TPP riboswitch aptamer (THI element): a 103-nucleotide sequence from Spirosoma endophyticum. Its family is annotated with thiamine pyrophosphate binding in the Gene Ontology. The organism belongs to Spirosoma, within Bacteria. A search with the family's covariance model found it, with a score of 67 bits.
[Rfam]
RNA sequence: AAACAACUUUAGGGGUGUCGGUUCGGGUACUGAACUGACUGAGAUAAUACCCUCACAACCUGAUGCCGUUUGUACGGCCGUAGGGAAAAGUUAGCUCUCCUCC
Dot-bracket structure: .....(((((((((.((((((((((.....))))))))).......)..)))).....((((..((((......))))..))))..)))))............